[Rfam]
RNA sequence: AUUCUGUAGUUGGUUGAGAUUGGGCCAAAUACGUUCAGCCAGUUAAAUUUGGUCCCCUUCAACCAGCUGUAGUUA
Numbered sequence: 001a002u003u004c005u006g007u008a009g010u011u012g013g014u015u016g017a018g019a020u021u022g023g024g025c026c027a028a029a030u031a032c033g034u035u036c037a038g039c040c041a042g043u044u045a046a047a048u049u050u051g052g053u054c055c056c057c058u059u060c061a062a063c064c065a066g067c068u069g070u071a072g073u074u075a
Stems, first nucleotide, its partner, number of pairs: 004072003008068011022054002025052006
Shown here is a 75-nucleotide RNA from Magallana gigas, a member of the family "mir-133 microRNA precursor family". Gene Ontology terms of the family: miRNA-mediated post-transcriptional gene silencing and RISC complex. A search with the family's covariance model found it, with a score of 58 bits. mir-133 was first experimentally characterised in mouse and homologues have since been discovered in several other species. The mature sequence is excised from the 3' arm of the hairpin. The organism belongs to Magallana, within Eukaryota. The family's consensus secondary structure was predicted with PFOLD.